U11 spliceosomal RNA: a 155-nucleotide sequence from Puma concolor. Lineage of the source: Eukaryota > Chordata > Sarcopterygii > Eutheria > Puma. Rfam classes the family as a spliceosomal small nuclear RNA. On this family, see Schneider et al., Proc Natl Acad Sci U S A 2004: "Identification of an evolutionarily divergent U11 small nuclear ribonucleoprotein particle in Drosophila".

RNA sequence: AAAAAGGGCUUCUAUUGUGAGUGGCACACAUAGGGCAGCUCCAUUGCUCUUCGUGCGGAAUUGACAUCAAGAGAUUUCAGAAGCAUAAUUUUUUGGUACCCAGGCAGCUUGUGAUCAUUGGUCCUGAAAGAAAAAAAAAAGAGUCAGAUGCUUAA
Numbered sequence: 001a002a003a004a005a006g007g008g009c010u011u012c013u014a015u016u017g018u019g020a021g022u023g024g025c026a027c028a029c030a031u032a033g034g035g036c037a038g039c040u041c042c043a044u045u046g047c048u049c050u051u052c053g054u055g056c057g058g059a060a061u062u063g064a065c066a067u068c069a070a071g072a073g074a075u076u077u078c079a080g081a082a083g084c085a086u087a088a089u090u091u092u093u094u095g096g097u098a099c100c101c102a103g104g105c106a107g108c109u110u111g112u113g114a115u116c117a118u119u120g121g122u123c124c125u126g127a128a129a130g131a132a133a134a135a136a137a138a139a140a141g142a143g144u145c146a147g148a149u150g151c152u153u154a155a
Base pairs, nucleotide, nucleotide: 008084009083010082011081012080013026015024016023017022027055028054029053032050033049034048035047036046037045038044057078058077059076060075061074062073102153103152104151105150107149109147110146111145113144115142116141